[Rfam]
RNA: Small nucleolar RNA SNORD113/SNORD114 family
RNA sequence: CAGACCAGUGAUGAUGGCUGGUGUCGUAUGAAUCACGGUUGAUGAAUACAUCUGGAACUCUGAGGUCUAG
Number, nucleotide and partner (000 for none) at each position: 001c000002a068003g067004a066005c065006c064007a000008g000009u000010g000011a000012u000013g000014a000015u000016g000017g000018c000019u000020g000021g000022u000023g000024u000025c000026g000027u000028a000029u000030g000031a000032a000033u000034c000035a000036c000037g000038g000039u000040u000041g000042a000043u000044g000045a000046a000047u000048a000049c000050a000051u000052c000053u000054g000055g000056a000057a000058c000059u000060c000061u000062g000063a000064g006065g005066u004067c003068u002069a000070g000